[Rfam]
RNA: FMN riboswitch aptamer (RFN element)
Organism: Nonomuraea muscovyensis
RNA sequence: UAGCGUGCUCCGGGGUCGGUGAAAUUCCGAACCGGCGGUGACAGUCCGCGACCCGGCCGAUGCCAUCGGCCGGUUGAUCCGGUGAAAUUCCGGGACCGACGGUGAAAGUCCGGAUGGGAGGAAGCGCGCGG
Numbered sequence: 001u002a003g004c005g006u007g008c009u010c011c012g013g014g015g016u017c018g019g020u021g022a023a024a025u026u027c028c029g030a031a032c033c034g035g036c037g038g039u040g041a042c043a044g045u046c047c048g049c050g051a052c053c054c055g056g057c058c059g060a061u062g063c064c065a066u067c068g069g070c071c072g073g074u075u076g077a078u079c080c081g082g083u084g085a086a087a088u089u090c091c092g093g094g095a096c097c098g099a100c101g102g103u104g105a106a107a108g109u110c111c112g113g114a115u116g117g118g119a120g121g122a123a124g125c126g127c128g129c130g131g
Stems, first nucleotide, its partner, number of pairs: 003129007010120001017029003031109002033098002035049004044096002053073002078094005100112003